Shown here is a 172-nucleotide RNA from Kineococcus radiotolerans, a member of the family "c-di-AMP riboswitch aptamer (ydaO/yuaA leader)". The base pairs follow the family's consensus structure. Taxonomically the source falls in Kineococcus radiotolerans (Bacteria, Bacillati, Actinomycetota, Kineococcus).
RNA sequence: CGUCGAGGUCCCCCGAGAACAUUCAUGGCAGGGGUGGGGGAACCACGUUUCCCGGGCGACGCCGGACCACCAGGUCCGGUCGAGCCCUUGGGGUGAAGCCGGUGCGAACCGGCCGGGCGAUACUCCCGCCCGAACCCGACAGCUCACCUCGCAGGCGUCGGAGAGGCCACCA
Numbered sequence: 001c002g003u004c005g006a007g008g009u010c011c012c013c014c015g016a017g018a019a020c021a022u023u024c025a026u027g028g029c030a031g032g033g034g035u036g037g038g039g040g041a042a043c044c045a046c047g048u049u050u051c052c053c054g055g056g057c058g059a060c061g062c063c064g065g066a067c068c069a070c071c072a073g074g075u076c077c078g079g080u081c082g083a084g085c086c087c088u089u090g091g092g093g094u095g096a097a098g099c100c101g102g103u104g105c106g107a108a109c110c111g112g113c114c115g116g117g118c119g120a121u122a123c124u125c126c127c128g129c130c131c132g133a134a135c136c137c138g139a140c141a142g143c144u145c146a147c148c149u150c151g152c153a154g155g156c157g158u159c160g161g162a163g164a165g166g167c168c169a170c171c172a
Stems, first nucleotide, its partner, number of pairs: 001157004009032002034152006044090002091137003099112004115131004